[Rfam]
RNA: Group II catalytic intron D1-D4-1
RNA sequence: CAAUUUUAUUAGUGAUAAUACGAUGAAUUGUGAGGAGUCAGCAGACGCCAUAGUAGUUUCUUAAUGAAAUGAAGGGC
Numbered sequence: 001c002a003a004u005u006u007u008a009u010u011a012g013u014g015a016u017a018a019u020a021c022g023a024u025g026a027a028u029u030g031u032g033a034g035g036a037g038u039c040a041g042c043a044g045a046c047g048c049c050a051u052a053g054u055a056g057u058u059u060c061u062u063a064a065u066g067a068a069a070u071g072a073a074g075g076g077c
Base pairs, nucleotide, nucleotide: 001025002024004023005022007020008019009018010017011016037046038045039044047077048076049075056070057069058068059067060066